[Rfam]
RNA sequence: GGUUACGAGCCCCAGUGACAAGGUCCGGCUGGCUGGGCAGCAACCCUCGUACUUGCGGCGGGGUGCUCCGGAUAACGACCAGGCAGGUCUCAUCCGAGUCCCUGCAAGUGCAAGCC
Number, nucleotide and partner (000 for none) at each position: 001g080002g079003u078004u077005a000006c000007g000008a000009g038010c000011c037012c036013c035014a034015g033016u032017g000018a000019c000020a000021a030022g029023g000024u000025c000026c000027g000028g000029c022030u021031g000032g016033c015034u014035g013036g012037g011038c009039a067040g066041c065042a000043a000044c063045c062046c061047u000048c058049g000050u000051a000052c000053u000054u000055g000056c000057g000058g048059c000060g000061g046062g045063g044064u000065g041066c040067u039068c000069c000070g000071g000072a000073u000074a000075a000076c000077g004078a003079c002080c001081a000082g000083g105084c104085a103086g102087g100088u000089c098090u097091c096092a000093u000094c000095c000096g091097a090098g089099u000100c087101c000102c086103u085104g084105c083106a000107a000108g000109u000110g000111c000112a000113a000114g000115c000116c000
RNA: SAM (S-adenosyl methionine) riboswitch aptamer